Rfam assigns this 83-nucleotide RNA from Electrophorus electricus to the family "mir-221 microRNA precursor family".
RNA sequence: UCUGUUGCUUACCCGGUACUCAGUGUAGGGUCUGUUGAUACCUAAUACAGCUACAUCUGAUUACUGGGUCAGUGAUGACAUCA
Number, nucleotide and partner (000 for none) at each position: 001u000002c000003u000004g000005u000006u000007g000008c000009u000010u000011a000012c000013c067014c066015g065016g064017u063018a062019c000020u060021c059022a058023g056024u055025g054026u053027a052028g051029g000030g000031u000032c050033u049034g048035u047036u000037g000038a000039u000040a000041c000042c000043u000044a000045a000046u000047a035048c034049a033050g032051c028052u027053a026054c025055a024056u023057c000058u022059g021060a020061u000062u018063a017064c016065u015066g014067g013068g000069u000070c000071a000072g000073u000074g000075a000076u000077g000078a000079c000080a000081u000082c000083a000